Rfam assigns this 49-nucleotide RNA from Bifidobacterium adolescentis to the family "L31-Actinobacteria ribosomal protein leader". On this family, see Eckert and Weinberg, BMC Microbiol 2020: "Discovery of 20 novel ribosomal leader candidates in bacteria and archaea". The source organism's lineage runs through Bacteria, Bifidobacteriales, Bifidobacteriaceae, Bifidobacterium and Bifidobacterium adolescentis. Rfam classes the family as a cis-regulatory leader. A search with the family's covariance model found it, with a score of 36 bits.
RNA sequence: AAGGUUAUCCGGUUCACGCCUUGCCAUCGGGGCAAUGCGACCCGGGUCC
Numbered sequence: 001a002a003g004g005u006u007a008u009c010c011g012g013u014u015c016a017c018g019c020c021u022u023g024c025c026a027u028c029g030g031g032g033c034a035a036u037g038c039g040a041c042c043c044g045g046g047u048c049c
Stems, first nucleotide, its partner, number of pairs: 003049002007047001009045004017039003021035005